[Rfam]
Shown here is a 97-nucleotide RNA from Trueperella bernardiae, a member of the family "Bacterial small signal recognition particle RNA". Rfam's curators write: The signal recognition particle (SRP) is a universally conserved ribonucleoprotein involved in the co-translational targeting of proteins to membranes. For this family Rfam cites "SRPDB: Signal Recognition Particle Database" (Rosenblad et al., Nucleic Acids Res, 2003). Lineage of the source: Bacteria > Bacillati > Actinomycetales > Actinomycetaceae > Trueperella. Rfam classes the family as a non-coding RNA gene.

RNA sequence: GGCGGCUCCCCACGUGGCGUCAUCUUGAGGAACUCCCCCAGGGCAGGAAUGCAGCAAGGGUACUUGGGCUCUGGCGGGUGCGUGGGGAGUCCUUACU
Numbered sequence: 001g002g003c004g005g006c007u008c009c010c011c012a013c014g015u016g017g018c019g020u021c022a023u024c025u026u027g028a029g030g031a032a033c034u035c036c037c038c039c040a041g042g043g044c045a046g047g048a049a050u051g052c053a054g055c056a057a058g059g060g061u062a063c064u065u066g067g068g069c070u071c072u073g074g075c076g077g078g079u080g081c082g083u084g085g086g087g088a089g090u091c092c093u094u095a096c097u
Stems, first nucleotide, its partner, number of pairs: 004091011015078001018076005024068006035060003043052003